Record summary:
This 137-nucleotide sequence from Sinosporangium siamense belongs to the Rfam family "SAM (S-adenosyl methionine) riboswitch aptamer". The base pairs follow the family's consensus structure, which is taken from published work. Rfam describes the family as follows. SAM-IV is a mRNA element that regulates gene expression via direct sensing of S-adenosylmethionine (SAM or AdoMet). SAM-IV riboswitches share conserved nucleotide positions with the previously described SAM-I riboswitches sequence analysis and molecular recognition experiments suggest that SAM-I and SAM-IV riboswitches share similar ligand binding sites, but have different scaffolds. It scores 76 bits against the family's covariance model.

[Rfam]
RNA sequence: GGCAAGGAGUGCCAGCGUCAAGCCCCGGCUAGCUGGCCGGCAACCCUCCACUGUGGCGGGGUGCCCCGGGGGGAAGCCAGGUGGCGUGAGACCGGGCAUCGCGCGGAGGUCCCGGAGCAGCGCCACAAGCACAGAUG
Numbered sequence: 001g002g003c004a005a006g007g008a009g010u011g012c013c014a015g016c017g018u019c020a021a022g023c024c025c026c027g028g029c030u031a032g033c034u035g036g037c038c039g040g041c042a043a044c045c046c047u048c049c050a051c052u053g054u055g056g057c058g059g060g061g062u063g064c065c066c067c068g069g070g071g072g073g074a075a076g077c078c079a080g081g082u083g084g085c086g087u088g089a090g091a092c093c094g095g096g097c098a099u100c101g102c103g104c105g106g107a108g109g110u111c112c113c114g115g116a117g118c119a120g121c122g123c124c125a126c127a128a129g130c131a132c133a134g135a136u137g
Base pairs, nucleotide, nucleotide: 001078002077003076009038011037012036013035014034015033016032021030022029039065040064041063044061045060046059048056049055081126082125083124084123085122086121